[Rfam]
RNA: MIR535 microRNA precursor family
Organism: Actinidia chinensis
RNA sequence: AUUAUUGCUUGACGACGAGAGAGAGCACUCUUGUAUGCAUUCAUGCAUGGGGCACGAUUGUGAACAAGCGUGUUUUCUAUCGUUGUCAUACGAUU
Numbered sequence: 001a002u003u004a005u006u007g008c009u010u011g012a013c014g015a016c017g018a019g020a021g022a023g024a025g026c027a028c029u030c031u032u033g034u035a036u037g038c039a040u041u042c043a044u045g046c047a048u049g050g051g052g053c054a055c056g057a058u059u060g061u062g063a064a065c066a067a068g069c070g071u072g073u074u075u076u077c078u079a080u081c082g083u084u085g086u087c088a089u090a091c092g093a094u095u
Stems, first nucleotide, its partner, number of pairs: 010088005016082002020078002023075001025073004030068005